[Rfam]
RNA sequence: GAGGUCGAGAGGCGCUGCGACGGGUGACCACCCGCCACGCUCGGCCCGGCCUUCACCUUCAAGGGCGCCUCCGAUCG
Numbered sequence: 001g002a003g004g005u006c007g008a009g010a011g012g013c014g015c016u017g018c019g020a021c022g023g024g025u026g027a028c029c030a031c032c033c034g035c036c037a038c039g040c041u042c043g044g045c046c047c048g049g050c051c052u053u054c055a056c057c058u059u060c061a062a063g064g065g066c067g068c069c070u071c072c073g074a075u076c077g
Stems, first nucleotide, its partner, number of pairs: 003046006021034005
RNA: SAH (S-adenosyl-L-homocysteine) riboswitch aptamer